RNA: hya RNA
Organism: Antrihabitans stalagmiti
RNA sequence: AACAUCACACAAGAGGGCCGACGGUCGACUCCGGUGAUGUAGGAACCUCUGCCCGGGUUCCGGAAGGCGCUCA
Numbered sequence: 001a002a003c004a005u006c007a008c009a010c011a012a013g014a015g016g017g018c019c020g021a022c023g024g025u026c027g028a029c030u031c032c033g034g035u036g037a038u039g040u041a042g043g044a045a046c047c048u049c050u051g052c053c054c055g056g057g058u059u060c061c062g063g064a065a066g067g068c069g070c071u072c073a
Stems, first nucleotide, its partner, number of pairs: 003039006042061006